RNA sequence: CAUCCCAAUGAAGAAUGAUUCAAAUUAAAAGUAGUGGACAGAAAUCUAUUGAUGAGUAAUGAAUUCUGAGAGAUG
Number, nucleotide and partner (000 for none) at each position: 001c075002a074003u073004c072005c000006c070007a000008a000009u000010g000011a000012a000013g000014a000015a000016u000017g000018a000019u000020u000021c000022a000023a000024a000025u000026u000027a000028a000029a000030a000031g000032u000033a000034g000035u000036g000037g000038a000039c000040a000041g000042a000043a000044a000045u000046c000047u000048a000049u000050u000051g000052a000053u000054g000055a000056g000057u000058a000059a000060u000061g000062a000063a000064u000065u000066c000067u000068g000069a000070g006071a000072g004073a003074u002075g001
Rfam assigns this 75-nucleotide RNA sequence from Quercus lobata to the family "Small nucleolar RNA R21". The family's RNA type in Rfam is C/D-box small nucleolar RNA. It scores 66 bits against the family's covariance model.